Annotation: The family of this 76-nucleotide sequence from Triticum aestivum is "Plastid-rpl20 3UTR RNA". The organism belongs to Triticum, within Eukaryota. The literature on the family includes a 2023 paper in Plant Commun by Richter et al., "Retrograde signaling in plants: A critical review focusing on the GUN pathway and beyond". The base pairs follow the family's consensus structure, which was predicted with LocARNA. About the family: Plastid rpl20 is a non-coding RNA (ncRNA) recognised in plastids. It was found in the three prime untranslated region (3UTR) of rpl20 gene, it presence in the 3UTR region sugest a role in transcript maduration.

RNA sequence: GAUGAAUUCCCGGAGAGGGAACUCCGGGAAGAUACAAUAAAUUAAGAUUAAGUGGUAGGAAUCAACAAGCUGGAUU
Dot-bracket structure: ......(((((((((......))))))))).................................(.(......).).
Numbered sequence: 001g002a003u004g005a006a007u008u009c010c011c012g013g014a015g016a017g018g019g020a021a022c023u024c025c026g027g028g029a030a031g032a033u034a035c036a037a038u039a040a041a042u043u044a045a046g047a048u049u050a051a052g053u054g055g056u057a058g059g060a061a062u063c064a065a066c067a068a069g070c071u072g073g074a075u076u
Stems, first nucleotide, its partner, number of pairs: 007030009064075001066073001